[Rfam]
A member of the RNA family "RAGATH-18 RNA" from Clostridiales bacterium CHKCI001, 73 nucleotides long. The family's RNA type in Rfam is small RNA. From the family's description: Actinobacteria, Firmicutes, Fusobacteria, Thermotogae (1 example).
RNA sequence: ACUGUGGAGUGUACAAAAACUUGUGAGUAGUGCGUUGCCUGCAACCACCAAAACAUACACAGCGAAGCAGUAA
Dot-bracket structure: (((((...(((((........(((.....(((...(.......).)))....))))))))......)))))..